[Rfam]
RNA sequence: GGCUUGUGGGGGGUCACUCUGGGCACCGCAACACUGUGCUAGGGAUGUUGCAGCUGCCUGGGAGUGACUUCACACAGUCC
Numbered sequence: 001g002g003c004u005u006g007u008g009g010g011g012g013g014u015c016a017c018u019c020u021g022g023g024c025a026c027c028g029c030a031a032c033a034c035u036g037u038g039c040u041a042g043g044g045a046u047g048u049u050g051c052a053g054c055u056g057c058c059u060g061g062g063a064g065u066g067a068c069u070u071c072a073c074a075c076a077g078u079c080c
Stems, first nucleotide, its partner, number of pairs: 001080002004077005010071010020060006026053001028051006034044002
The record is an 80-nucleotide RNA from Canis lupus, which matches "mir-1301 microRNA precursor family" in Rfam.